Shown here is a 270-nucleotide RNA sequence from Phascolarctobacterium sp. CAG:266, a member of the family "T-box leader". Lineage of the source: Bacteria > Bacillati > Bacillota > Negativicutes > Phascolarctobacterium. Rfam classes the family as a cis-regulatory leader.
[Rfam]
RNA sequence: CAAAUUGCGUUGAUUGGGAAAAGUAGUAAAGAAGCCCAGAUUCCAGAGAACUUAUCAUUUAGCUGAGAGAUAAGAUCAAAGCACUUUAUGAAAAUCCCCCAUGAGCUGCCAGCUGAAGGGCAAACGCCUGUGUAAGUGUGGCCGGAGGACGACCGUUACAGCGUCAGGCAUUGAACGUCAGUUGUGAAACUUUCGGUGAUGCCGGUAAAGUGGCCGUAUUAUUACGGCAAUAAGAGUGGUACCGCAGAGCUAUUCGGCUUUGUCUCUUAC
Number, nucleotide and partner (000 for none) at each position: 001c000002a000003a000004a000005u000006u000007g106008c105009g000010u000011u000012g000013a000014u000015u101016g100017g099018g098019a000020a000021a000022a000023g000024u000025a000026g089027u088028a087029a086030a085031g084032a000033a000034g000035c000036c000037c000038a000039g077040a076041u075042u000043c000044c000045a000046g000047a000048g000049a000050a000051c074052u073053u072054a071055u070056c069057a000058u000059u000060u000061a000062g000063c000064u000065g000066a000067g000068a000069g056070a055071u054072a053073a052074g051075a041076u040077c039078a000079a000080a000081g000082c000083a000084c031085u030086u029087u028088a027089u026090g000091a000092a000093a000094a000095u000096c000097c000098c018099c017100c016101a015102u000103g000104a000105g008106c007107u000108g000109c141110c140111a139112g137113c136114u135115g000116a000117a000118g000119g000120g000121c000122a000123a000124a000125c000126g000127c000128c000129u000130g000131u000132g000133u000134a000135a114136g113137u112138g000139u111140g110141g109142c000143c155144g154145g153146a000147g000148g000149a000150c000151g000152a000153c145154c144155g143156u000157u000158a000159c000160a000161g000162c000163g000164u000165c000166a000167g000168g000169c000170a000171u000172u000173g000174a000175a000176c000177g000178u000179c000180a000181g000182u000183u000184g000185u000186g000187a000188a000189a000190c000191u000192u000193u000194c000195g000196g000197u000198g000199a000200u000201g000202c000203c000204g000205g000206u000207a000208a000209a000210g000211u000212g000213g228214c227215c226216g225217u224218a223219u000220u000221a000222u000223u218224a217225c216226g215227g214228c213229a000230a000231u000232a000233a267234g266235a265236g264237u000238g000239g000240u000241a000242c000243c000244g263245c262246a261247g260248a259249g258250c257251u000252a000253u000254u000255c000256g000257g250258c249259u248260u247261u246262g245263u244264c236265u235266c234267u233268u000269a000270c000